[Rfam]
RNA sequence: UAGUGUGUGAGGAGUAAGUUGAAAGAACGGAAAGCGCUUGGAGUGGAAACACGGUCACACGUCCAAGCGCUUUUUGUU
Numbered sequence: 001u002a003g004u005g006u007g008u009g010a011g012g013a014g015u016a017a018g019u020u021g022a023a024a025g026a027a028c029g030g031a032a033a034g035c036g037c038u039u040g041g042a043g044u045g046g047a048a049a050c051a052c053g054g055u056c057a058c059a060c061g062u063c064c065a066a067g068c069g070c071u072u073u074u075u076g077u078u
Base pairs, nucleotide, nucleotide: 031073032072033071034070035069038066039065040064041063042062043060044059045058
Rfam assigns this 78-nucleotide RNA sequence from Calothrix sp. C42_A2020_038 to the family "Cyano-1 RNA".
Rfam 15.1 lists 283 matches to the family in 194 species.
The match comes from Rfam's covariance-model search (51 bits).
Taxonomically the source falls in Calothrix (Bacteria, Bacillati, Cyanobacteriota, Calotrichaceae).
Rfam classes the family as a small RNA.